[Rfam]
A member of the RNA family "Potassium channel RNA editing signal" from Ramazzottius varieornatus, 114 nucleotides long. NCBI's taxonomy places the organism under Eukaryota, Eumetazoa, Bilateria, Ecdysozoa, Ramazzottius. Rfam classes the family as a cis-regulatory element. A search with the family's covariance model found it, with a score of 57 bits.

RNA sequence: GUUGGGUACGGUACAGUGGUACCAUUGGGCAUCCUCGGCAAACUCAUCGGUUGUACCUGUGCCGUCUCCGGUCUUCUAUUCAUCGCUCUUCCCGUACCGGUUAUUGUCUCCAAC
Numbered sequence: 001g002u003u004g005g006g007u008a009c010g011g012u013a014c015a016g017u018g019g020u021a022c023c024a025u026u027g028g029g030c031a032u033c034c035u036c037g038g039c040a041a042a043c044u045c046a047u048c049g050g051u052u053g054u055a056c057c058u059g060u061g062c063c064g065u066c067u068c069c070g071g072u073c074u075u076c077u078a079u080u081c082a083u084c085g086c087u088c089u090u091c092c093c094g095u096a097c098c099g100g101u102u103a104u105u106g107u108c109u110c111c112a113a114c
Base pairs, nucleotide, nucleotide: 001114002113004111005110008107009106010105011104013102015101017099019097020096021095022094037077038076040074049063050062051061